[Rfam]
RNA: Small Cajal body specific RNA 11
Organism: Microcaecilia unicolor
RNA sequence: UUGUGUGCCCUGUAUUACAGUCCCAAGCCCAAGGUAUGAUGAAGGAUUGUCAGGCGCACAGAGAGUAAUCUGUCUGUUUAGGAGGGCUGCUCCAAAUGCUGAGCAGACCCUUAAAGGCAUGACAGGACAUU
Numbered sequence: 001u002u003g004u005g006u007g008c009c010c011u012g013u014a015u016u017a018c019a020g021u022c023c024c025a026a027g028c029c030c031a032a033g034g035u036a037u038g039a040u041g042a043a044g045g046a047u048u049g050u051c052a053g054g055c056g057c058a059c060a061g062a063g064a065g066u067a068a069u070c071u072g073u074c075u076g077u078u079u080a081g082g083a084g085g086g087c088u089g090c091u092c093c094a095a096a097u098g099c100u101g102a103g104c105a106g107a108c109c110c111u112u113a114a115a116g117g118c119a120u121g122a123c124a125g126g127a128c129a130u131u
Base pairs, nucleotide, nucleotide: 002060003059004058005057006056007055008054010053011052024049025048026047028045029044069126070125071124072123073122074121076118077117078116079115082112083111084110085109086108088106089104090103091102092101